[Rfam]
RNA sequence: AAAAAUUUGGUCAUUUCUGGCCAGGGCCAACUGUUGCCUGAAGAAGGGUAA
Number, nucleotide and partner (000 for none) at each position: 001a000002a000003a000004a000005a000006u000007u000008u000009g022010g021011u020012c019013a018014u000015u000016u000017c000018u013019g012020g011021c010022c009023a000024g000025g000026g000027c000028c000029a000030a000031c000032u000033g000034u000035u000036g000037c000038c000039u000040g000041a000042a000043g000044a000045a000046g000047g000048g000049u000050a000051a000
This 51-nucleotide RNA sequence belongs to the Rfam family "algC RNA". Rfam classes the family as a cis-regulatory element.